[Rfam]
Nucleotides: 118
Stems, first nucleotide, its partner, number of pairs: 001029003007024004054111003067097008076088002
Number, partner (000 for none) and nucleotide at each position: 001029g002028g003027g004000g005000a006000c007024c008023a009022u010021c011000c012000a013000u014000a015000a016000g017000a018000g019000g020000a021010g022009a023008u024007g025000c026000a027003c028002c029001c030000g031000a032000u033000a034000c035000a036000a037000u038000c039000u040000u041000c042000c043000a044000a045000a046000a047000g048000u049000a050000a051000a052000c053000c054111u055110c056109u057000g058000a059000a060000a061000u062000u063000u064000c065000c066000u067097g068096c069095u070094u071093g072092u073091a074090g075000a076088u077087u078000c079000u080000u081000g082000a083000g084000u085000u086000a087077g088076g089000u090074c091073u092072a093071c094070a095069a096068g097067c098000c099000u100000c101000a102000a103000a104000u105000c106000a107000u108000c109056a110055g111054a112000a113000a114000c115000a116000u117000c118000g